[Rfam]
Annotation: The record is a 38-nucleotide RNA from Sinobaca qinghaiensis, which matches "Ribosomal protein L19 leader" in Rfam. This family is a putative r-protein leader autoregulatory structure found in B. subtilis and other low-GC Gram-positive bacteria. It is located in the 5' untranslated regions of mRNAs encoding ribosomal protein L19 (rplS). The match comes from Rfam's covariance-model search (40 bits). The organism belongs to Sinobaca, within Bacteria. Gene Ontology term of the family: regulation of gene expression. Rfam classes the family as a cis-regulatory leader.
RNA sequence: ACGAUGUUCCGCUGCCGUAGAACGGGCAAGAACAUGGG
Numbered sequence: 001a002c003g004a005u006g007u008u009c010c011g012c013u014g015c016c017g018u019a020g021a022a023c024g025g026g027c028a029a030g031a032a033c034a035u036g037g038g
Base pairs, nucleotide, nucleotide: 004035005034006033007032008031009030013028014027015025016024017023018022